RNA sequence: CUGGCUCCGGUUCACGCCACCUCGUAGGGAGGGGCGACCCGGCGGCC
Numbered sequence: 001c002u003g004g005c006u007c008c009g010g011u012u013c014a015c016g017c018c019a020c021c022u023c024g025u026a027g028g029g030a031g032g033g034g035c036g037a038c039c040c041g042g043c044g045g046c047c
Base pairs, nucleotide, nucleotide: 003047004046005045007042008041009040010039015036016035017034018033020032021031022030023029
L31-Actinobacteria ribosomal protein leader: a 47-nucleotide sequence from Nocardioides sp. URHA0032.
On this family, see Eckert and Weinberg, BMC Microbiol 2020: "Discovery of 20 novel ribosomal leader candidates in bacteria and archaea".
The base pairs follow the family's consensus structure, which is taken from published work.
Its Rfam clan is "Ribosomal Protein L31 Leader clan".
The sequence is in the family's curated seed alignment.